[Rfam]
Nucleotides: 069
Stems, first nucleotide, its partner, number of pairs: 010026004016060006043050002
Number, partner (000 for none) and nucleotide at each position: 001000a002000a003000g004000a005000a006000a007000a008000u009000a010026g011025g012024g013023a014000a015000u016060g017059a018058a019057g020056u021055u022000c023013u024012c025011c026010c027000u028000u029000g030000g031000g032000c033000a034000a035000c036000c037000u038000a039000a040000a041000c042000c043050g044049c045000a046000a047000c048000a049044g050043c051000u052000g053000a054000u055021g056020a057019c058018u059017u060016c061000u062000a063000c064000g065000a066000u067000u068000u069000u

Fluoride riboswitch aptamer (crcB RNA motif): a 69-nucleotide sequence from Aedoeadaptatus coxii. The family's consensus secondary structure is taken from published work. Taxonomically the source falls in Aedoeadaptatus (Bacteria, Bacillota, Tissierellales, Peptoniphilaceae).